[Rfam]
RNA sequence: AAUAUGAACAAGCGGUAAAUCGUGAGAUUUAUGCAGCCGGGUCCUCAAGUGUGAGGACAGCAGACCACUGCAUCUAAUUGUAGAGUGCGUGCCUGUGAGACAG
Numbered sequence: 001a002a003u004a005u006g007a008a009c010a011a012g013c014g015g016u017a018a019a020u021c022g023u024g025a026g027a028u029u030u031a032u033g034c035a036g037c038c039g040g041g042u043c044c045u046c047a048a049g050u051g052u053g054a055g056g057a058c059a060g061c062a063g064a065c066c067a068c069u070g071c072a073u074c075u076a077a078u079u080g081u082a083g084a085g086u087g088c089g090u091g092c093c094u095g096u097g098a099g100a101c102a103g
Stems, first nucleotide, its partner, number of pairs: 005102002012037002014034001015032005041058007060096004066091003
RNA: NiCo-AnGGAG riboswitch aptamer
Organism: Streptococcus minor